[Rfam]
RNA: Small nucleolar RNA SNORA26
Organism: Penelope pileata
RNA sequence: GUGCUCUCUCGGAGCCUGGCAGUGCUCCGAGCAGUCAACACAGGGGGAUAGAGCGCCUUCCUCACAUAAACCCAGCGCGGGGCCGCCCUCCCCGCGCUGCAUCCUGUCGUGAGGCACAGCC
Numbered sequence: 001g002u003g004c005u006c007u008c009u010c011g012g013a014g015c016c017u018g019g020c021a022g023u024g025c026u027c028c029g030a031g032c033a034g035u036c037a038a039c040a041c042a043g044g045g046g047g048a049u050a051g052a053g054c055g056c057c058u059u060c061c062u063c064a065c066a067u068a069a070a071c072c073c074a075g076c077g078c079g080g081g082g083c084c085g086c087c088c089u090c091c092c093c094g095c096g097c098u099g100c101a102u103c104c105u106g107u108c109g110u111g112a113g114g115c116a117c118a119g120c121c
Stems, first nucleotide, its partner, number of pairs: 002050002005047005014039001017037002020031001061113005073099006080092003